Record summary:
Shown here is a 76-nucleotide sequence from Cyanoderma ruficeps, a member of the family "Small nucleolar RNA SNORD69". snoRNA HBII-210 belongs to the C/D family of snoRNAs. It is the human orthologue of the mouse MBII-210 and is predicted to guide the 2'O-ribose methylation of large 28S rRNA on residue G4464. For this family Rfam cites "RNomics: an experimental approach that identifies 201 candidates for novel, small, non-messenger RNAs in mouse" (Huttenhofer et al., EMBO J, 2001). Its family is annotated with RNA processing and nucleolus in the Gene Ontology. It is annotated as a C/D-box small nucleolar RNA. The source organism's lineage runs through Eukaryota, Euteleostomi, Saurischia, Passeriformes and Cyanoderma. Pairs were carried over by alignment from the consensus structure.
RNA sequence: UGCACAAAGCACGUGAUGACAAAUCGCAGAAACUGAUUGUAUGAAGUACAUUCAAUCCAACACUGAGCUUUGUGUC
Numbered sequence: 001u002g003c004a005c006a007a008a009g010c011a012c013g014u015g016a017u018g019a020c021a022a023a024u025c026g027c028a029g030a031a032a033c034u035g036a037u038u039g040u041a042u043g044a045a046g047u048a049c050a051u052u053c054a055a056u057c058c059a060a061c062a063c064u065g066a067g068c069u070u071u072g073u074g075u076c
Stems, first nucleotide, its partner, number of pairs: 002075009